[Rfam]
RNA: Bacterial RNase P class A
Organism: Candidatus Accumulibacter cognatus
RNA sequence: GAAGCUGGUCAGGCAGCCGCUGGGCAAGAGGUGCAAACCUGGCGCCGAGAGGAAAGUCCGGGCUCCGUAGAGCAGGAUGCCGGUUAACGACCGGGCACCGUGAGGUGACGGAAAGUGCCACAGAAAUCAAACCGCCGAUGUUCCCGAGUAUGGGGGCAGGCAAGGGUGAAACGGCGAGGUAAGAGCUCACCGCGGCCGUGGUAACACGGACGGCACGGCAAACCCCAUCUGGAGCAAGGCCAAAUAGGGAAGCAUGGGCGUGGCUCGCGCUGCUUCCGGGUAGGCUGCUUGAGCGUGCUGGUAACAGUACGCCUAGAGGAAUGGCUGCCCACGACAGAACCCGGCUUAUCGACUGGCUUCCCAC
Numbered sequence: 001g002a003a004g005c006u007g008g009u010c011a012g013g014c015a016g017c018c019g020c021u022g023g024g025c026a027a028g029a030g031g032u033g034c035a036a037a038c039c040u041g042g043c044g045c046c047g048a049g050a051g052g053a054a055a056g057u058c059c060g061g062g063c064u065c066c067g068u069a070g071a072g073c074a075g076g077a078u079g080c081c082g083g084u085u086a087a088c089g090a091c092c093g094g095g096c097a098c099c100g101u102g103a104g105g106u107g108a109c110g111g112a113a114a115g116u117g118c119c120a121c122a123g124a125a126a127u128c129a130a131a132c133c134g135c136c137g138a139u140g141u142u143c144c145c146g147a148g149u150a151u152g153g154g155g156g157c158a159g160g161c162a163a164g165g166g167u168g169a170a171a172c173g174g175c176g177a178g179g180u181a182a183g184a185g186c187u188c189a190c191c192g193c194g195g196c197c198g199u200g201g202u203a204a205c206a207c208g209g210a211c212g213g214c215a216c217g218g219c220a221a222a223c224c225c226c227a228u229c230u231g232g233a234g235c236a237a238g239g240c241c242a243a244a245u246a247g248g249g250a251a252g253c254a255u256g257g258g259c260g261u262g263g264c265u266c267g268c269g270c271u272g273c274u275u276c277c278g279g280g281u282a283g284g285c286u287g288c289u290u291g292a293g294c295g296u297g298c299u300g301g302u303a304a305c306a307g308u309a310c311g312c313c314u315a316g317a318g319g320a321a322u323g324g325c326u327g328c329c330c331a332c333g334a335c336a337g338a339a340c341c342c343g344g345c346u347u348a349u350c351g352a353c354u355g356g357c358u359u360c361c362c363a364c
Base pairs, nucleotide, nucleotide: 001360002359003358004357005356006355007354008353009352010351011349012329013328014327015326016325017324018323020049021048023046024045025044054347055346056345058344059343060342061341062340063234064233065232066231070266071265072264073263075230076229077228078227079226080094081093082092083091084090095109096107097106098105099104110225111224115223116222117219118218119217132165133164134161135160136159139158140157141156142155143154144153145152146151173191174190176188177187178186192214193212194211196209197208198207199206200205238286239285240284241283248277249276250275251274252273253272257271258270259269260268261267293312294311295310296309297308298307299306300305
Dot-bracket structure: ((((((((((((((((((.((.(((..................))).))....[[[.[[[[[((((...[[[[.((((((((((.....)))))(((((....)))).)((...(((((............(((((..((((((((....)))))))))))..)).......((.(((.......))).))(((.(((((....))))).)).)..)))..)))))))))))))...((((......((((((...(((((.]]]]))))))))))).....))))......((((((((....))))))))..........)))))))..........]]]]]]]].).))))))))))....